The record is a 169-nucleotide RNA from Atractosteus spatula, which matches "Small Cajal body specific RNA 16" in Rfam. Rfam describes the family as follows. scaRNAs are a specific class of small nuclear RNAs which localise to the Cajal bodies and guide the modification of RNA polymerase II transcribed spliceosomal RNAs U1, U2, U4, U5 and U12. ACA47 belongs to the H/ACA box class of guide RNAs as it has the predicted hairpin-hinge-hairpin-tail structure, the conserved H/ACA-box motifs and is found associated with GAR1. ACA47 is predicted to guide the pseudouridylation of residue U5 of the U1 spliceosomal snRNA.

RNA sequence: UUGGUCUGGGGAAAUGGCUACUGUGUUGCUGGCCCUGUUUGUCAGGGUUAGCCAUGUAUACUGUAGCCAGCCCCUGACCUAGAUUAUACCAGGGUAGUGUACUCUGGCAGUAGCAGGUGUGAGCAUGCAGUCAGCUCUUUGAUGCUCAUGUAUAAUACUGCACACACUA
Dot-bracket structure: ..((((.(((.....((((((.(.((.((((.(((.........))).)))).....)).).))))))...))).))))...........(((((.....))))).((((((..(....(((.(((...(........)..))).)))....)..))))))........

The family has 37 seed sequences and 790 matches in Rfam 15.1.
By type it is a small Cajal body RNA.
Rfam links the family to the GO terms nucleolus and RNA processing.
Taxonomically the source falls in Atractosteus (Eukaryota, Metazoa, Chordata, Lepisosteidae).